[Rfam]
RNA: TPP riboswitch aptamer (THI element)
Organism: Firmicutes bacterium CAG:94
RNA sequence: AAGGAAAAACAGGGGAGCUCGUGCUGGCGGGCUGAGAGGAAGUCAUCAACUUCGACCCUUUAACCUGAUACGGAUAAUGCCGUCGUAGGAAGUGACAUCGCGCUUUUU
Numbered sequence: 001a002a003g004g005a006a007a008a009a010c011a012g013g014g015g016a017g018c019u020c021g022u023g024c025u026g027g028c029g030g031g032c033u034g035a036g037a038g039g040a041a042g043u044c045a046u047c048a049a050c051u052u053c054g055a056c057c058c059u060u061u062a063a064c065c066u067g068a069u070a071c072g073g074a075u076a077a078u079g080c081c082g083u084c085g086u087a088g089g090a091a092g093u094g095a096c097a098u099c100g101c102g103c104u105u106u107u108u
Base pairs, nucleotide, nucleotide: 009093010092011059012058013057014056017032018031019030020029021028039053040052041051042050043049064089065088066087067086070083071082072081073080